This 102-nucleotide RNA sequence from Sapajus apella belongs to the Rfam family "Y RNA".
From the family's description: Y RNAs are components of the Ro ribonucleoprotein particle (Ro RNP), in association with Ro60 and La proteins.
On this family, see Teunissen et al., Nucleic Acids Res 2000: "Conserved features of Y RNAs: a comparison of experimentally derived secondary structures".
The source organism's lineage runs through Eukaryota, Chordata, Vertebrata, Boreoeutheria and Sapajus.
RNA sequence: GGCUGGUCCGAGUGCAGUGGUGUUUACAACUAAUUGGUCACAACUAGUUACAGAUUUCUUUGUUCCAUCUCCAAUCCCACUGUUUCACUCAAUUAGCCUUAA
Number, nucleotide and partner (000 for none) at each position: 001g098002g097003c096004u095005g094006g093007u092008c000009c000010g090011a089012g000013u000014g086015c000016a081017g080018u079019g078020g077021u000022g076023u000024u000025u000026a000027c000028a064029a063030c062031u000032a060033a059034u000035u000036g000037g000038u000039c000040a000041c000042a000043a000044c000045u000046a000047g000048u000049u000050a000051c000052a000053g000054a000055u000056u000057u000058c000059u033060u032061u000062g030063u029064u028065c000066c000067a000068u000069c000070u000071c000072c000073a000074a000075u000076c022077c020078c019079a018080c017081u016082g000083u000084u000085u000086c014087a000088c000089u011090c010091a000092a007093u006094u005095a004096g003097c002098c001099u000100u000101a000102a000